[Rfam]
RNA sequence: GAGAUACCCUUAUGGGGCGGGACUUGCUUUAGUGGGGCUUUGGUGCUCACUGAGUAUUCCCCUUGAGUGUUUCUCU
Numbered sequence: 001g002a003g004a005u006a007c008c009c010u011u012a013u014g015g016g017g018c019g020g021g022a023c024u025u026g027c028u029u030u031a032g033u034g035g036g037g038c039u040u041u042g043g044u045g046c047u048c049a050c051u052g053a054g055u056a057u058u059c060c061c062c063u064u065g066a067g068u069g070u071u072u073c074u075c076u
Stems, first nucleotide, its partner, number of pairs: 001075004006070002009067004014062004019057001022055002029053008037044002
Shown here is a 76-nucleotide RNA from Myotis myotis, a member of the family "mir-9229 microRNA precursor family". The base pairs follow the family's consensus structure, which was predicted with RNAalifold.